[Rfam]
RNA sequence: ACUCUCCCAGCUCUGCAUGUUUACACUUGUCCUCACUCGUGUGACUUUCGUAAUGUGGAGAGAGAGAAAAGUUCUCCUCAGGAUGUCAGGUUGGCCUUACAGUGGCCCUGAGGAGUCCAACAGGG
Numbered sequence: 001a002c003u004c005u006c007c008c009a010g011c012u013c014u015g016c017a018u019g020u021u022u023a024c025a026c027u028u029g030u031c032c033u034c035a036c037u038c039g040u041g042u043g044a045c046u047u048u049c050g051u052a053a054u055g056u057g058g059a060g061a062g063a064g065a066g067a068a069a070a071g072u073u074c075u076c077c078u079c080a081g082g083a084u085g086u087c088a089g090g091u092u093g094g095c096c097u098u099a100c101a102g103u104g105g106c107c108c109u110g111a112g113g114a115g116u117c118c119a120a121c122a123g124g125g
Stems, first nucleotide, its partner, number of pairs: 002066005008060001011058002014055002019046001021044006074115005080109003094106003
Background
The family of this 125-nucleotide RNA from Otolemur garnettii is "Small nucleolar RNA SNORA64/SNORA10 family". This family belongs to the H/ACA class of small nucleolar RNAs (snoRNAs) which act as guides in the the modification of uridines to pseudouridines. This family includes the human snoRNAs U64 and ACA10 and mouse MBI-29. Its family is annotated with nucleolus and RNA processing in the Gene Ontology. The family's RNA type in Rfam is H/ACA-box small nucleolar RNA. The family's consensus secondary structure is taken from published work. Its Rfam clan is "SNORA64 clan".